The record is a 178-nucleotide RNA sequence from Vibrio splendidus, which matches "Lysine riboswitch aptamer" in Rfam.
Gene Ontology term of the family: lysine biosynthetic process.
The family's consensus secondary structure is taken from published work.
Rfam's curators put it in the seed alignment.

[Rfam]
RNA sequence: AUCGCACGUAGAGGCGCAAUUAUAAAAAGUAGUUUUCGUUGGGGUGAUGCCAAUGAGCGGGAAUGAAAGGUCUAAUUGCCGAAGUAAAUUGUAUAUCUAAGCAAUUUGCUGGGGUUGUGCUCAAUAGGUACAACACUGCCAUAGUCUUAAUUUUAAACUAUGGAGCGCUACUGUAGGG
Numbered sequence: 001a002u003c004g005c006a007c008g009u010a011g012a013g014g015c016g017c018a019a020u021u022a023u024a025a026a027a028a029g030u031a032g033u034u035u036u037c038g039u040u041g042g043g044g045u046g047a048u049g050c051c052a053a054u055g056a057g058c059g060g061g062a063a064u065g066a067a068a069g070g071u072c073u074a075a076u077u078g079c080c081g082a083a084g085u086a087a088a089u090u091g092u093a094u095a096u097c098u099a100a101g102c103a104a105u106u107u108g109c110u111g112g113g114g115u116u117g118u119g120c121u122c123a124a125u126a127g128g129u130a131c132a133a134c135a136c137u138g139c140c141a142u143a144g145u146c147u148u149a150a151u152u153u154u155a156a157a158c159u160a161u162g163g164a165g166c167g168c169u170a171c172u173g174u175a176g177g178g
Base pairs, nucleotide, nucleotide: 008171009170010169011168016079017078018077019076020075021074022073024071032064033063034062035061036060037059038058039057083110084109085108086107087106088105089104090103091102092101094099111137112136114134115133116132117131118130119129120128121127139163140162141161142160143159144158145157